[Rfam]
RNA sequence: UAAACCGAGGAGCGCUGCGAGAGGCUGUUCCCUCCCAGGCUCGGUUUCCGCAUCAACGGCGCUCACCCUCA
Numbered sequence: 001u002a003a004a005c006c007g008a009g010g011a012g013c014g015c016u017g018c019g020a021g022a023g024g025c026u027g028u029u030c031c032c033u034c035c036c037a038g039g040c041u042c043g044g045u046u047u048c049c050g051c052a053u054c055a056a057c058g059g060c061g062c063u064c065a066c067c068c069u070c071a
Stems, first nucleotide, its partner, number of pairs: 002047007021034004